[Rfam]
RNA sequence: AACAACGGAGGUCGACAUCGACGUACAUGGCUCUUGCCUUUUACCAGAGCCAUCCGGGUGUCGUCUCUACAAGUUGUUUUUCUAGUUUUUGGAAACUUCUUCUUAUGGAGACAAGUG
Numbered sequence: 001a002a003c004a005a006c007g008g009a010g011g012u013c014g015a016c017a018u019c020g021a022c023g024u025a026c027a028u029g030g031c032u033c034u035u036g037c038c039u040u041u042u043a044c045c046a047g048a049g050c051c052a053u054c055c056g057g058g059u060g061u062c063g064u065c066u067c068u069a070c071a072a073g074u075u076g077u078u079u080u081u082c083u084a085g086u087u088u089u090u091g092g093a094a095a096c097u098u099c100u101u102c103u104u105a106u107g108g109a110g111a112c113a114a115g116u117g
Base pairs, nucleotide, nucleotide: 003076004075005074006073009066010065013063014062015061016060017059018058019057027053028052029051030050031049032048033047034046095116096115097114098113100111
A member of the RNA family "U5 spliceosomal RNA" from Yarrowia lipolytica, 117 nucleotides long. U5 RNA is a component of both types of known spliceosome. The precise function of this molecule is unknown, though it is known that the 5' loop is required for splice site selection and p220 binding, and that both the 3' stem-loop and the Sm site are important for Sm protein binding and cap methylation. Rfam's curators put it in the seed alignment. The family's RNA type in Rfam is spliceosomal small nuclear RNA. Its family is annotated with U5 snRNP and spliceosomal tri-snRNP complex assembly in the Gene Ontology. The base pairs follow the family's consensus structure, which is taken from published work.